[Rfam]
RNA sequence: AUGUGUUACUAGGGGUGUGAUGUACGUCACUGAGAUCAGUCAGACUGGGACCCUUGAACCUGUUGAGUUGAAACUCGCGUAGGGAAGUACUGAAUGUCGACC
Numbered sequence: 001a002u003g004u005g006u007u008a009c010u011a012g013g014g015g016u017g018u019g020a021u022g023u024a025c026g027u028c029a030c031u032g033a034g035a036u037c038a039g040u041c042a043g044a045c046u047g048g049g050a051c052c053c054u055u056g057a058a059c060c061u062g063u064u065g066a067g068u069u070g071a072a073a074c075u076c077g078c079g080u081a082g083g084g085a086a087g088u089a090c091u092g093a094a095u096g097u098c099g100a101c102c
Stems, first nucleotide, its partner, number of pairs: 007089004011054004016048001017030005037047004059083004064077004
Shown here is a 102-nucleotide RNA sequence from Periweissella fabalis, a member of the family "TPP riboswitch aptamer (THI element)". Vitamin B(1) in its active form thiamin pyrophosphate (TPP) is an essential coenzyme that is synthesised by coupling of pyrimidine and thiazole moieties in bacteria. Its family is annotated with thiamine pyrophosphate binding in the Gene Ontology. Taxonomically the source falls in Periweissella (Bacteria, Bacillati, Bacilli, Lactobacillaceae).